[Rfam]
RNA sequence: GAGCCCGUAGCGCAGCGGCCGUCGCGCCUCCAUGGCAUGGAGGAGGACGCCGGUUCGAAUCCGGCCGGGCUCA
Dot-bracket structure: (((((((..(((..........))).(((((.......))))).....(((((.......)))))))))))).
Rfam assigns this 73-nucleotide sequence from Bailinhaonella thermotolerans to the family "tRNA". Rfam's curators write: Transfer RNA (tRNA) molecules are approximately 80 nucleotides in length. The family's consensus secondary structure is taken from published work. The match comes from Rfam's covariance-model search (56 bits).